[Rfam]
RNA: Bacterial small signal recognition particle RNA
Organism: Teredinibacter turnerae
RNA sequence: GCUCGGUUCCCCCGCAACAAUUCGCUGUGAACCCCGCCAGGUCCGGAAGGAAGCAACGGUAGCAGUAACAUUGUGUGCCGGGGUGUGGCUGGGUUGA
Numbered sequence: 001g002c003u004c005g006g007u008u009c010c011c012c013c014g015c016a017a018c019a020a021u022u023c024g025c026u027g028u029g030a031a032c033c034c035c036g037c038c039a040g041g042u043c044c045g046g047a048a049g050g051a052a053g054c055a056a057c058g059g060u061a062g063c064a065g066u067a068a069c070a071u072u073g074u075g076u077g078c079c080g081g082g083g084u085g086u087g088g089c090u091g092g093g094u095u096g097a
Stems, first nucleotide, its partner, number of pairs: 004091005010083005015075001017074005024066005034059003042051003